[Rfam]
RNA sequence: GCUCAAGCCUCACAAGAAUCGCUUUCGCAGCUCCCGCACUAGAUGACGAGUAUCCAACUCGUUCAUCUCCCCUUUACGCUGUGGGUGAAAGUCCCCGGAGCCUCCCACUCGUCCCUGUCUAUCAUCGUUCUUUCCCUGCCAUUCUCACGAGUCCCGAAAUUCAUUUGAGUUGGCGAUGUCGCUCUUCAGCCUUCAAGCCUCCGAGAAUCUACUAGUCACCUUUGAGUCCCGGAUCACAAGGCCUGGAGAGCACCCGUACUCAAGCAUACAGGGAGUGGUCCUGUCAUCCAGGGCGAGAAGUUGACGAACGGCUUGGAUUGCAGGCUUGGGGGUUUUGCUCUUCCGAACAUCACCUUUUCUCGAUCGUAUUCGGGUCCGGCAGGAUCGGGUUCUCGAGAUAGACUGUUCUGCUUCUCGUGAACGGUACAUUUCCGAGCGAGAAGACGUCCUACCUCGCCGAUAAGACGUGUAUUUUGCCUUUUCUCCCCUUCCCUGGGUGCGCGACACGGCUUCUCUACCCUAUCUGGUAUAUUCUGCCCAUCCAUAAGGGUCAUGCUCGUCCGGACGAGGAUCGGUGAAGAUACGAGCCGUCCUCCUCUCCCUUCUAGCUGAACUUUUCGCCUCAGAAACGCCUGGGCGUAGUUGGAUGCUUGUGCGAUGUUACAGCCAAGGCUAGGUUUACGAGCGCCGUCCUUCCCACCAAGGUCCGUGUGGAAAUGGCGGGGGAAAUUGAGUGGGACGAGAGUGCUCAUAGUGAUAGUCAUGCGAUUGCCCGGAUAGAUUUCGCUUCGGCGGAAUUGAGGGUAACUCGAUGGGGCUUACUCUGUGGCUUGGG
Numbered sequence: 001g002c003u004c005a006a007g008c009c010u011c012a013c014a015a016g017a018a019u020c021g022c023u024u025u026c027g028c029a030g031c032u033c034c035c036g037c038a039c040u041a042g043a044u045g046a047c048g049a050g051u052a053u054c055c056a057a058c059u060c061g062u063u064c065a066u067c068u069c070c071c072c073u074u075u076a077c078g079c080u081g082u083g084g085g086u087g088a089a090a091g092u093c094c095c096c097g098g099a100g101c102c103u104c105c106c107a108c109u110c111g112u113c114c115c116u117g118u119c120u121a122u123c124a125u126c127g128u129u130c131u132u133u134c135c136c137u138g139c140c141a142u143u144c145u146c147a148c149g150a151g152u153c154c155c156g157a158a159a160u161u162c163a164u165u166u167g168a169g170u171u172g173g174c175g176a177u178g179u180c181g182c183u184c185u186u187c188a189g190c191c192u193u194c195a196a197g198c199c200u201c202c203g204a205g206a207a208u209c210u211a212c213u214a215g216u217c218a219c220c221u222u223u224g225a226g227u228c229c230c231g232g233a234u235c236a237c238a239a240g241g242c243c244u245g246g247a248g249a250g251c252a253c254c255c256g257u258a259c260u261c262a263a264g265c266a267u268a269c270a271g272g273g274a275g276u277g278g279u280c281c282u283g284u285c286a287u288c289c290a291g292g293g294c295g296a297g298a299a300g301u302u303g304a305c306g307a308a309c310g311g312c313u314u315g316g317a318u319u320g321c322a323g324g325c326u327u328g329g330g331g332g333u334u335u336u337g338c339u340c341u342u343c344c345g346a347a348c349a350u351c352a353c354c355u356u357u358u359c360u361c362g363a364u365c366g367u368a369u370u371c372g373g374g375u376c377c378g379g380c381a382g383g384a385u386c387g388g389g390u391u392c393u394c395g396a397g398a399u400a401g402a403c404u405g406u407u408c409u410g411c412u413u414c415u416c417g418u419g420a421a422c423g424g425u426a427c428a429u430u431u432c433c434g435a436g437c438g439a440g441a442a443g444a445c446g447u448c449c450u451a452c453c454u455c456g457c458c459g460a461u462a463a464g465a466c467g468u469g470u471a472u473u474u475u476g477c478c479u480u481u482u483c484u485c486c487c488c489u490u491c492c493c494u495g496g497g498u499g500c501g502c503g504a505c506a507c508g509g510c511u512u513c514u515c516u517a518c519c520c521u522a523u524c525u526g527g528u529a530u531a532u533u534c535u536g537c538c539c540a541u542c543c544a545u546a547a548g549g550g551u552c553a554u555g556c557u558c559g560u561c562c563g564g565a566c567g568a569g570g571a572u573c574g575g576u577g578a579a580g581a582u583a584c585g586a587g588c589c590g591u592c593c594u595c596c597u598c599u600c601c602c603u604u605c606u607a608g609c610u611g612a613a614c615u616u617u618u619c620g621c622c623u624c625a626g627a628a629a630c631g632c633c634u635g636g637g638c639g640u641a642g643u644u645g646g647a648u649g650c651u652u653g654u655g656c657g658a659u660g661u662u663a664c665a666g667c668c669a670a671g672g673c674u675a676g677g678u679u680u681a682c683g684a685g686c687g688c689c690g691u692c693c694u695u696c697c698c699a700c701c702a703a704g705g706u707c708c709g710u711g712u713g714g715a716a717a718u719g720g721c722g723g724g725g726g727a728a729a730u731u732g733a734g735u736g737g738g739a740c741g742a743g744a745g746u747g748c749u750c751a752u753a754g755u756g757a758u759a760g761u762c763a764u765g766c767g768a769u770u771g772c773c774c775g776g777a778u779a780g781a782u783u784u785c786g787c788u789u790c791g792g793c794g795g796a797a798u799u800g801a802g803g804g805u806a807a808c809u810c811g812a813u814g815g816g817g818c819u820u821a822c823u824c825u826g827u828g829g830c831u832u833g834g835g
Stems, first nucleotide, its partner, number of pairs: 002835005010829005017770006025084007041068006089820003093817004678728003682724001686722004697714004772804003777799001

This 835-nucleotide sequence from Tremellales sp. Tagirdzhanova-0007 belongs to the Rfam family "RNase MRP". The organism belongs to Tremellales, within Eukaryota. Its family is annotated with ribonuclease MRP complex, ribonuclease MRP activity and rRNA processing in the Gene Ontology. The family has 66 seed sequences and 3,510 matches in Rfam 15.1. The match comes from Rfam's covariance-model search (66 bits). It is annotated as a ribozyme.